[Rfam]
RNA sequence: UUGACCGUGUACUCCCAGAUGUCCUCGGGAUCGGCGAGCGUCUUGUCGCCGAAGUGGUCGCCGUUCGCGAGCACGCCGAGCGUGGUCUCGUUCCCGUACUGCCCCGGCCCGAUCUUGCACACCUUGCCGUGGGCGAUGAGGAAGGCCUGGUCGGAGGGGGAGCCGAACUCGACGAUCACGUCGCCGGCUUCGUAGGUCUGCUGCACGAACCGGUCGGCCAGCGCGCGGAGCACGGUCUCGUCGUCGAACCCCCGCAGCAGCGGCAGCUCGGCCAGCUCCGCCGGGAUCACGCUGACGUCGGUGCCGGUGCUGACGAACGUGACCCGGCCGUCGCCGACGGUGUAGGUGAGCCGGCGGUUGACCCGGUACGUGCCGCCGUCGGCCUGGACCCACGGCAGGACGCGCAGCAGCCACCGCGACGUGAUGGACUGCAUCUGCGGGACGGACUUCGUCGUGGUCGCGAGCUGCCGCGCCGCCGCGGUGCUCAGGCUCUGCCGCCGUUCGU
Numbered sequence: 001u002u003g004a005c006c007g008u009g010u011a012c013u014c015c016c017a018g019a020u021g022u023c024c025u026c027g028g029g030a031u032c033g034g035c036g037a038g039c040g041u042c043u044u045g046u047c048g049c050c051g052a053a054g055u056g057g058u059c060g061c062c063g064u065u066c067g068c069g070a071g072c073a074c075g076c077c078g079a080g081c082g083u084g085g086u087c088u089c090g091u092u093c094c095c096g097u098a099c100u101g102c103c104c105c106g107g108c109c110c111g112a113u114c115u116u117g118c119a120c121a122c123c124u125u126g127c128c129g130u131g132g133g134c135g136a137u138g139a140g141g142a143a144g145g146c147c148u149g150g151u152c153g154g155a156g157g158g159g160g161a162g163c164c165g166a167a168c169u170c171g172a173c174g175a176u177c178a179c180g181u182c183g184c185c186g187g188c189u190u191c192g193u194a195g196g197u198c199u200g201c202u203g204c205a206c207g208a209a210c211c212g213g214u215c216g217g218c219c220a221g222c223g224c225g226c227g228g229a230g231c232a233c234g235g236u237c238u239c240g241u242c243g244u245c246g247a248a249c250c251c252c253c254g255c256a257g258c259a260g261c262g263g264c265a266g267c268u269c270g271g272c273c274a275g276c277u278c279c280g281c282c283g284g285g286a287u288c289a290c291g292c293u294g295a296c297g298u299c300g301g302u303g304c305c306g307g308u309g310c311u312g313a314c315g316a317a318c319g320u321g322a323c324c325c326g327g328c329c330g331u332c333g334c335c336g337a338c339g340g341u342g343u344a345g346g347u348g349a350g351c352c353g354g355c356g357g358u359u360g361a362c363c364c365g366g367u368a369c370g371u372g373c374c375g376c377c378g379u380c381g382g383c384c385u386g387g388a389c390c391c392a393c394g395g396c397a398g399g400a401c402g403c404g405c406a407g408c409a410g411c412c413a414c415c416g417c418g419a420c421g422u423g424a425u426g427g428a429c430u431g432c433a434u435c436u437g438c439g440g441g442a443c444g445g446a447c448u449u450c451g452u453c454g455u456g457g458u459c460g461c462g463a464g465c466u467g468c469c470g471c472g473c474c475g476c477c478g479c480g481g482u483g484c485u486c487a488g489g490c491u492c493u494g495c496c497g498c499c500g501u502u503c504g505u
Base pairs, nucleotide, nucleotide: 007389008388010386011385014382015381018328021325025322026321027320029318031316032315037311038310039309040308041307042306045305047303048302049301050300051299052298054233055232058229059228062225063224064223065111067108068107075102077101079100080099082097083096084095085094117222118221122217123216127212129210130209131206133204134203135202138199140197145191149189150188151187152186153185154184157177164174165173234296236294240290241289243287244286245285249283252280254278256277257276258275261270262269329342330341331340332339352378353377354376355375356374357373361371362370391431392430396426397425400422401421403418404417405416407415437476438475439474440473443470444469445468448464449463450462451461452460477504478503480499481498482497486494487493488492
RNA: Saccharopolyspora sRNA 350
Organism: Amycolatopsis sacchari